[Rfam]
RNA sequence: UAGACAAACAGAAGGAGGCUCUCUUGACUAUAUCUAGAACAUCUAGGUUGCGAUAUGCUGCUCGGGCUUUGGGCUAGGCGAAGUCGAAGAAUGCAGCAAAUCUCUUGCAGGGUUGGUUUGGGGCAAAGAAAAAAAAAGUCCUGGCAUCGGUCCGCCUCGGACACCGCGGAUAUGACUCGGUGUCGAUGUUGACAUGGGACCAAGACCCAUCUCGAGUUGGAGUCAAAGUUUAGUGCUUGUCCGGUUCCCUGAUCAAUUCGUUCUUCCAGUCCGAUUCGCGGGCUGUCGACAUCUGACUUGGCUCAUUGACGCGUACUUUGUGUACGACUAUUGGAUUGUAAGGACACGCCAUGGGUUGGAAGGCAGUCCUGGUUGUCCUUCUCCCAGAAAUGGCUGGAGGACAACCCCCCGCUGGUGAGG
Numbered sequence: 001u002a003g004a005c006a007a008a009c010a011g012a013a014g015g016a017g018g019c020u021c022u023c024u025u026g027a028c029u030a031u032a033u034c035u036a037g038a039a040c041a042u043c044u045a046g047g048u049u050g051c052g053a054u055a056u057g058c059u060g061c062u063c064g065g066g067c068u069u070u071g072g073g074c075u076a077g078g079c080g081a082a083g084u085c086g087a088a089g090a091a092u093g094c095a096g097c098a099a100a101u102c103u104c105u106u107g108c109a110g111g112g113u114u115g116g117u118u119u120g121g122g123g124c125a126a127a128g129a130a131a132a133a134a135a136a137a138g139u140c141c142u143g144g145c146a147u148c149g150g151u152c153c154g155c156c157u158c159g160g161a162c163a164c165c166g167c168g169g170a171u172a173u174g175a176c177u178c179g180g181u182g183u184c185g186a187u188g189u190u191g192a193c194a195u196g197g198g199a200c201c202a203a204g205a206c207c208c209a210u211c212u213c214g215a216g217u218u219g220g221a222g223u224c225a226a227a228g229u230u231u232a233g234u235g236c237u238u239g240u241c242c243g244g245u246u247c248c249c250u251g252a253u254c255a256a257u258u259c260g261u262u263c264u265u266c267c268a269g270u271c272c273g274a275u276u277c278g279c280g281g282g283c284u285g286u287c288g289a290c291a292u293c294u295g296a297c298u299u300g301g302c303u304c305a306u307u308g309a310c311g312c313g314u315a316c317u318u319u320g321u322g323u324a325c326g327a328c329u330a331u332u333g334g335a336u337u338g339u340a341a342g343g344a345c346a347c348g349c350c351a352u353g354g355g356u357u358g359g360a361a362g363g364c365a366g367u368c369c370u371g372g373u374u375g376u377c378c379u380u381c382u383c384c385c386a387g388a389a390a391u392g393g394c395u396g397g398a399g400g401a402c403a404a405c406c407c408c409c410c411g412c413u414g415g416u417g418a419g420g
Stems, first nucleotide, its partner, number of pairs: 204224003207220003226238004
The family of this 420-nucleotide part of an RNA from Trichoderma cornu-damae is "Ascomycota telomerase RNA". Its family is annotated with telomerase activity, telomere maintenance via telomerase and telomerase catalytic core complex in the Gene Ontology.